[Rfam]
Source information: Small nucleolar RNA snoR136: a 144-nucleotide RNA sequence from Malus baccata. Pairs were carried over by alignment from the consensus structure, which was predicted with mfold.
RNA sequence: AAGGCUUUGAAUUUCGUAUUCAACAUGCACUUAACAUUCGAACUGGGUGCGUGUUAUGCUUUGAGAAGAGCCGAGAAAGAUGUUCUCCUAGCUAUCUAAUGCCACGAUUUCUGUUUGGUAUUUGGACGUCGGAGGACUAAAUCC
Numbered sequence: 001a002a003g004g005c006u007u008u009g010a011a012u013u014u015c016g017u018a019u020u021c022a023a024c025a026u027g028c029a030c031u032u033a034a035c036a037u038u039c040g041a042a043c044u045g046g047g048u049g050c051g052u053g054u055u056a057u058g059c060u061u062u063g064a065g066a067a068g069a070g071c072c073g074a075g076a077a078a079g080a081u082g083u084u085c086u087c088c089u090a091g092c093u094a095u096c097u098a099a100u101g102c103c104a105c106g107a108u109u110u111c112u113g114u115u116u117g118g119u120a121u122u123u124g125g126a127c128g129u130c131g132g133a134g135g136a137c138u139a140a141a142u143c144c
Base pairs, nucleotide, nucleotide: 003072004071005070008067009062010061011060014058018054024053025052026051027050028049029048030047031046032045033044082137083136084135085134086133087132088131091127095126096125097124098123099122104116106114

Rfam links the family to the GO terms RNA processing and nucleolus. A reference for the family is Chen and Wu (2009), "Mining small RNA sequencing data: a new approach to identify small nucleolar RNAs in Arabidopsis", Nucleic Acids Res.